Small nucleolar RNA Z161/Z228: a 97-nucleotide RNA sequence from Populus trichocarpa. Its family is annotated with nucleolus and RNA processing in the Gene Ontology. The base pairs follow the family's consensus structure, which was predicted with PFOLD. Rfam 15.1 lists 630 matches to the family in 214 species. It is annotated as a C/D-box small nucleolar RNA. Clan: SNORD35 clan.
[Rfam]
RNA sequence: AAAUCAAGUGAUGAAUCUGGAUUGUAAAUUUCUCACGACGGUCGUCUGAGACACUUCGUGUCAACACUGAUGUAAAGAUCCAAUGUUUCUGAUGAUU
Numbered sequence: 001a002a003a004u005c006a007a008g009u010g011a012u013g014a015a016u017c018u019g020g021a022u023u024g025u026a027a028a029u030u031u032c033u034c035a036c037g038a039c040g041g042u043c044g045u046c047u048g049a050g051a052c053a054c055u056u057c058g059u060g061u062c063a064a065c066a067c068u069g070a071u072g073u074a075a076a077g078a079u080c081c082a083a084u085g086u087u088u089c090u091g092a093u094g095a096u097u
Stems, first nucleotide, its partner, number of pairs: 001097002004094001052060003